This 31-nucleotide RNA from Heliornis fulica belongs to the Rfam family "Iron response element II".

[Rfam]
RNA sequence: CCUUUAUCAGCUGCAGUGACAGCUAUAAAUC
Numbered sequence: 001c002c003u004u005u006a007u008c009a010g011c012u013g014c015a016g017u018g019a020c021a022g023c024u025a026u027a028a029a030u031c
Base pairs, nucleotide, nucleotide: 003029004028005027006026007025009024010023011022012021013020014018
About the family: IRE, TFRC, SLC40A1, SDHB, SLC11A2, CDC42BPA, ACO2, ALAS2_H.SAPIENS, CDC14A, EPAS1, ALAS2, qoxD, Hao1, NDUFS1, transferrin, Aconitate.
The family's RNA type in Rfam is cis-regulatory element.
The base pairs follow the family's consensus structure, which is taken from published work.